RNA sequence: GGGUAACACCAAAAAGCUGAGUUGUUACCUGUUCCAAUCUUCCUAUAGAAAUUUCUCUAGUUCCUUGCUUGUAGUGCUUAAGUGAGUCCUGCAGGUCACAUAUCUCCAGAGACAUGA
Numbered sequence: 001g002g003g004u005a006a007c008a009c010c011a012a013a014a015a016g017c018u019g020a021g022u023u024g025u026u027a028c029c030u031g032u033u034c035c036a037a038u039c040u041u042c043c044u045a046u047a048g049a050a051a052u053u054u055c056u057c058u059a060g061u062u063c064c065u066u067g068c069u070u071g072u073a074g075u076g077c078u079u080a081a082g083u084g085a086g087u088c089c090u091g092c093a094g095g096u097c098a099c100a101u102a103u104c105u106c107c108a109g110a111g112a113c114a115u116g117a
Base pairs, nucleotide, nucleotide: 001030002029003028005026006025007024008023010021054110055109056108067096068095069094070093071092072091073090074089076087077086078085